[Rfam]
RNA sequence: UUCACACCCAUGUGUGUAGGACCCCAUAAGAUCACUAUUAAAUUUGGUAUAGAUCUCUAAAAAAGUUAUCACAUGGAUGUGGGACUUGACUUUUUUAGAGAUCUGUGCCAAAUUUAAUGGUGAUCCUUUGAAGUCCUACACACAUAGGUGUGGG
Numbered sequence: 001u002u003c004a005c006a007c008c009c010a011u012g013u014g015u016g017u018a019g020g021a022c023c024c025c026a027u028a029a030g031a032u033c034a035c036u037a038u039u040a041a042a043u044u045u046g047g048u049a050u051a052g053a054u055c056u057c058u059a060a061a062a063a064a065g066u067u068a069u070c071a072c073a074u075g076g077a078u079g080u081g082g083g084a085c086u087u088g089a090c091u092u093u094u095u096u097a098g099a100g101a102u103c104u105g106u107g108c109c110a111a112a113u114u115u116a117a118u119g120g121u122g123a124u125c126c127u128u129u130g131a132a133g134u135c136c137u138a139c140a141c142a143c144a145u146a147g148g149u150g151u152g153g154g
Base pairs, nucleotide, nucleotide: 002153003152004151005150006149007148008147010145011144012143013142015140016139017138018137019136020135021134022133025130026129028127030125031124032123034121035120036119037118038117039116040115041114042113043112044111045110046109047108048107049106050105051104052103053102054101055100056099057098058097059096060095061094062093063092064091065090066089067088068087069082070081071080072079073078
The record is a 154-nucleotide RNA from Amborella trichopoda, which matches "MIR8565 microRNA precursor family" in Rfam.
A search with the family's covariance model found it, with a score of 147 bits.
Pairs were carried over by alignment from the consensus structure, which was predicted with RNAalifold.
Taxonomically the source falls in Amborella (Eukaryota, Streptophytina, Spermatophyta, Magnoliopsida).